Shown here is an 89-nucleotide sequence from Sus scrofa, a member of the family "Small nucleolar RNA SNORD87". The literature on the family includes a 2002 paper in Gene by Gogolevskaya et al., "U87 RNA, a novel C/D box small nucleolar RNA from mammalian cells". By type it is a C/D-box small nucleolar RNA. Its family is annotated with nucleolus and RNA processing in the Gene Ontology. The family has 10 seed sequences and 539 matches in Rfam 15.1.
RNA sequence: ACUGGCAUAAUGAUGACUCAAAUUACUUUUUGCCGUUUACCCAGCUGAGGGUGACUUUGAAGAAAUAAUUUCAAGACUGAGAUGCCAGU
Numbered sequence: 001a002c003u004g005g006c007a008u009a010a011u012g013a014u015g016a017c018u019c020a021a022a023u024u025a026c027u028u029u030u031u032g033c034c035g036u037u038u039a040c041c042c043a044g045c046u047g048a049g050g051g052u053g054a055c056u057u058u059g060a061a062g063a064a065a066u067a068a069u070u071u072c073a074a075g076a077c078u079g080a081g082a083u084g085c086c087a088g089u
Stems, first nucleotide, its partner, number of pairs: 001089007